[Rfam]
RNA: Brucella sRNA 0626
RNA sequence: UUCCUUCAUUGGCAGAAAAAAUCGAAAACGGUAGCAUUCAAAAUGAAAACAUCCGAAAGCGAAGCGAUAAUAAUUGGGGAGAACGUGUGAAUAAUAUGCGGGCAACCCGCGUGCCUUCUGAUUCCCCC
Numbered sequence: 001u002u003c004c005u006u007c008a009u010u011g012g013c014a015g016a017a018a019a020a021a022u023c024g025a026a027a028a029c030g031g032u033a034g035c036a037u038u039c040a041a042a043a044u045g046a047a048a049a050c051a052u053c054c055g056a057a058a059g060c061g062a063a064g065c066g067a068u069a070a071u072a073a074u075u076g077g078g079g080a081g082a083a084c085g086u087g088u089g090a091a092u093a094a095u096a097u098g099c100g101g102g103c104a105a106c107c108c109g110c111g112u113g114c115c116u117u118c119u120g121a122u123u124c125c126c127c128c
Stems, first nucleotide, its partner, number of pairs: 003012002022062003029055003037047004076127005085122002089118003095113008